[Rfam]
RNA sequence: AAUAGAACCCAUCAAGGGAGUGGUUCCCCAUCUAGGAGCUACUUUACCAUUUCCGAAUUA
Numbered sequence: 001a002a003u004a005g006a007a008c009c010c011a012u013c014a015a016g017g018g019a020g021u022g023g024u025u026c027c028c029c030a031u032c033u034a035g036g037a038g039c040u041a042c043u044u045u046a047c048c049a050u051u052u053c054c055g056a057a058u059u060a
Base pairs, nucleotide, nucleotide: 017045018044019043020042021041022040023039024038025037026036027035
RNA: Plastid-psbN 5UTR RNA
Organism: Jatropha curcas